[Rfam]
The record is a 46-nucleotide RNA sequence from Streptomyces mobaraensis, which matches "L31-Actinobacteria ribosomal protein leader" in Rfam. The sequence is in the family's curated seed alignment.
RNA sequence: UCGGCCCCGGUUCACGUACGGCAAUCCCGCCGCACGACCCGGUGCC
Numbered sequence: 001u002c003g004g005c006c007c008c009g010g011u012u013c014a015c016g017u018a019c020g021g022c023a024a025u026c027c028c029g030c031c032g033c034a035c036g037a038c039c040c041g042g043u044g045c046c
Stems, first nucleotide, its partner, number of pairs: 003046003007042004015036003019032004
Dot-bracket structure: ..(((.((((....(((.((((......)))).)))..)))).)))